RNA sequence: UAAGAUGGAGAUAAAAACACAGUUUCGGUUGGUAGUCCGAACCUAUCCAUAUUUUGUAGAUAGCAGUAACCUGCCCUCCUGGGGUUGUCCCUUCUUCAGGUUUUAAUU
Numbered sequence: 001u002a003a004g005a006u007g008g009a010g011a012u013a014a015a016a017a018c019a020c021a022g023u024u025u026c027g028g029u030u031g032g033u034a035g036u037c038c039g040a041a042c043c044u045a046u047c048c049a050u051a052u053u054u055u056g057u058a059g060a061u062a063g064c065a066g067u068a069a070c071c072u073g074c075c076c077u078c079c080u081g082g083g084g085u086u087g088u089c090c091c092u093u094c095u096u097c098a099g100g101u102u103u104u105a106a107u108u
Base pairs, nucleotide, nucleotide: 006098007097008096009095010094011093022042023041025040026039027038028037043063044062045061046060047059073085074084075083076082
Description: Shown here is a 108-nucleotide RNA from Clostridium pasteurianum, a member of the family "azaaromatic riboswitch aptamer (yjdF RNA)". NCBI's taxonomy places the organism under Bacteria, Clostridia, Eubacteriales, Clostridiaceae, Clostridium pasteurianum.